[Rfam]
RNA sequence: UGUAUGCAUUAAUGUGAAUCACGGGGGCGGUAUAUGUGUAAGUUGGCUCUUGAAAAAGGCCUCCUUCCUUGAUUAUACAACCUAAACUGAUCAUAUAGUCUGAGCAAACA
Numbered sequence: 001u002g003u004a005u006g007c008a009u010u011a012a013u014g015u016g017a018a019u020c021a022c023g024g025g026g027g028c029g030g031u032a033u034a035u036g037u038g039u040a041a042g043u044u045g046g047c048u049c050u051u052g053a054a055a056a057a058g059g060c061c062u063c064c065u066u067c068c069u070u071g072a073u074u075a076u077a078c079a080a081c082c083u084a085a086a087c088u089g090a091u092c093a094u095a096u097a098g099u100c101u102g103a104g105c106a107a108a109c110a
Stems, first nucleotide, its partner, number of pairs: 001110003005106003038068001040066003

The family of this 110-nucleotide RNA sequence from Aegilops tauschii is "Small nucleolar RNA Z118/Z121/Z120". It is annotated as a C/D-box small nucleolar RNA. The family has 7 seed sequences and 435 matches in Rfam 15.1. On this family, see Chen et al., Nucleic Acids Res 2003: "The high diversity of snoRNAs in plants: identification and comparative study of 120 snoRNA genes from Oryza sativa". Gene Ontology terms of the family: nucleolus and RNA processing.